[Rfam]
RNA sequence: UCAAAUAGUAGGCAAAUCUAUUGAAAAAUAGAGACGCAAAGCCACGGGUCUAAAGCAGGCCUUUCUGCCUGUCAUGACGGCCGGGUUGCAGAA
Number, nucleotide and partner (000 for none) at each position: 001u000002c000003a000004a000005a000006u000007a000008g000009u000010a000011g000012g037013c036014a000015a000016a000017u032018c031019u030020a029021u028022u027023g000024a000025a000026a000027a022028a021029u020030a019031g018032a017033g000034a000035c000036g013037c012038a000039a000040a087041g086042c085043c084044a000045c083046g082047g081048g078049u077050c076051u000052a000053a000054a000055g072056c071057a070058g069059g068060c067061c000062u000063u000064u000065c000066u000067g060068c059069c058070u057071g056072u055073c000074a000075u000076g050077a049078c048079g000080g000081c047082c046083g045084g043085g042086u041087u040088g000089c000090a000091g000092a000093a000
Rfam assigns this 93-nucleotide sequence from Desulfosporosinus orientis to the family "c-di-GMP-I riboswitch aptamer". NCBI's taxonomy places the organism under Bacteria, Bacillati, Eubacteriales, Desulfitobacteriaceae, Desulfosporosinus orientis. Its family is annotated with cyclic-di-GMP binding in the Gene Ontology. It scores 78 bits against the family's covariance model.